[Rfam]
Annotation:
Shown here is a 76-nucleotide RNA sequence from Myotis brandtii, a member of the family "mir-9229 microRNA precursor family". The family's consensus secondary structure was predicted with RNAalifold.
RNA sequence: GAAACAUACCUAUGGAGCAGGACUUGCUUCAGCUGGGCUUUGGUGCUCACUGAGUCUGCCCCUUGAGUGUGUCACU
Numbered sequence: 001g002a003a004a005c006a007u008a009c010c011u012a013u014g015g016a017g018c019a020g021g022a023c024u025u026g027c028u029u030c031a032g033c034u035g036g037g038c039u040u041u042g043g044u045g046c047u048c049a050c051u052g053a054g055u056c057u058g059c060c061c062c063u064u065g066a067g068u069g070u071g072u073c074a075c076u
Stems, first nucleotide, its partner, number of pairs: 001075001004072004009067001011065002014062002017059003021056003029053004035047002037044002
Dot-bracket structure: (..((((.(.((.((.(((.(((.....((((..((((....)).))..)))))))))).)).)).).))))..).